[Rfam]
The family of this 64-nucleotide sequence from Ictidomys tridecemlineatus is "U7 small nuclear RNA".
The organism belongs to Ictidomys, within Eukaryota.
Nucleotides: 064
Stems, first nucleotide, its partner, number of pairs: 034061001036059001037056002040053002043050002
Number, partner (000 for none) and nucleotide at each position: 001000g002000a003000g004000u005000g006000u007000u008000a009000c010000a011000g012000c013000u014000c015000u016000u017000u018000u019000a020000g021000a022000a023000u024000c025000u026000g027000c028000c029000u030000a031000g032000a033000a034061g035000a036059u037056u038055u039000g040053c041052u042000a043050g044049u045000u046000u047000u048000u049044g050043c051000c052041a053040g054000a055038a056037a057000c058000a059036a060000c061034c062000c063000c064000a